[Rfam]
RNA sequence: GCGAAAACCUAGGGGAUCCCCGGCAGGGGGCUGAGAGGCGGGCGGCGCUUUUGAAAGCGGCCCCGCGACCCUUUGAACCUGAUCCAGCUCGUACUGGCGUAGGGAUGGUCACGUGAUGUUUC
Numbered sequence: 001g002c003g004a005a006a007a008c009c010u011a012g013g014g015g016a017u018c019c020c021c022g023g024c025a026g027g028g029g030g031c032u033g034a035g036a037g038g039c040g041g042g043c044g045g046c047g048c049u050u051u052u053g054a055a056a057g058c059g060g061c062c063c064c065g066c067g068a069c070c071c072u073u074u075g076a077a078c079c080u081g082a083u084c085c086a087g088c089u090c091g092u093a094c095u096g097g098c099g100u101a102g103g104g105a106u107g108g109u110c111a112c113g114u115g116a117u118g119u120u121u122c
Base pairs, nucleotide, nucleotide: 007109008108009107011072012071013070014069018030019029020028021027038066039065040064041063042062078103079102080101081100084097085096086095087094
Rfam assigns this 122-nucleotide RNA from Candidatus Methylaffinis lahnbergensis to the family "TPP riboswitch aptamer (THI element)". Rfam describes the family as follows. Vitamin B(1) in its active form thiamin pyrophosphate (TPP) is an essential coenzyme that is synthesised by coupling of pyrimidine and thiazole moieties in bacteria. Pairs were carried over by alignment from the consensus structure, which is taken from published work.